This 188-nucleotide RNA sequence from Prochlorococcus marinus belongs to the Rfam family "permuted transfer-messenger RNA". Taxonomically the source falls in Prochlorococcus (Bacteria, Cyanobacteriota, Cyanophyceae, Prochlorococcaceae). Rfam's curators put it in the seed alignment. By type it is a non-coding RNA gene. Rfam's curators write: Bacterial tmRNA, also known as 10Sa RNA or SsrA, is named for its dual tRNA and mRNA-like properties.

[Rfam]
RNA sequence: GGUGAUCCACACCAGUGCUUCGGACAGCGGUUCGAUUCCGCUCAGCUCCAUUCCCCCUAUUGCAAGGGGCUGCAAUGGUUUCGACGGGGCAUCAGGCGGAUGACUGAAGCCUGCUCGGUGAGAGCAAAACCGUAACAGCGAACAACAUCGUUCGUUUCUCCCGUCAAGCCGCCCCCGUGGCCGCCUGA
Numbered sequence: 001g002g003u004g005a006u007c008c009a010c011a012c013c014a015g016u017g018c019u020u021c022g023g024a025c026a027g028c029g030g031u032u033c034g035a036u037u038c039c040g041c042u043c044a045g046c047u048c049c050a051u052u053c054c055c056c057c058u059a060u061u062g063c064a065a066g067g068g069g070c071u072g073c074a075a076u077g078g079u080u081u082c083g084a085c086g087g088g089g090c091a092u093c094a095g096g097c098g099g100a101u102g103a104c105u106g107a108a109g110c111c112u113g114c115u116c117g118g119u120g121a122g123a124g125c126a127a128a129a130c131c132g133u134a135a136c137a138g139c140g141a142a143c144a145a146c147a148u149c150g151u152u153c154g155u156u157u158c159u160c161c162c163g164u165c166a167a168g169c170c171g172c173c174c175c176c177g178u179g180g181c182c183g184c185c186u187g188a
Stems, first nucleotide, its partner, number of pairs: 001105003005101001016091003020087003026042005043072007